[Rfam]
RNA sequence: AUAUUCCUCAGAGAGAUAGGGUGAAGAAGCCUUGACAGGGUUCAGCCGAGCGAAGCGAGACAACGUUGCCCGGCGAAGCCGAAAAGGCAACGGCCCGAAGGGCAAGGGAGCGUAGCGACCGAGUAAAUCCCUAUCUCUCCGCCA
Numbered sequence: 001a002u003a004u005u006c007c008u009c010a011g012a013g014a015g016a017u018a019g020g021g022u023g024a025a026g027a028a029g030c031c032u033u034g035a036c037a038g039g040g041u042u043c044a045g046c047c048g049a050g051c052g053a054a055g056c057g058a059g060a061c062a063a064c065g066u067u068g069c070c071c072g073g074c075g076a077a078g079c080c081g082a083a084a085a086g087g088c089a090a091c092g093g094c095c096c097g098a099a100g101g102g103c104a105a106g107g108g109a110g111c112g113u114a115g116c117g118a119c120c121g122a123g124u125a126a127a128u129c130c131c132u133a134u135c136u137c138u139c140c141g142c143c144a
Stems, first nucleotide, its partner, number of pairs: 015135007022127001033104002036101001041099003047057002064092006

Shown here is a 144-nucleotide sequence from Grimontia hollisae, a member of the family "RtT RNA". The literature on the family includes a 1991 paper in Nucleic Acids Res by Bosl and Kersten, "A novel RNA product of the tyrT operon of Escherichia coli". Its family is annotated with cellular response to amino acid starvation in the Gene Ontology. Pairs were carried over by alignment from the consensus structure, which is taken from published work. About the family: This family represents a bacterial cis-regulatory element known as RtT RNA. The exact function of RtT is unknown although it is thought that it may be involved in changing the cellular response in relation to amino acid starvation. By type it is a cis-regulatory element.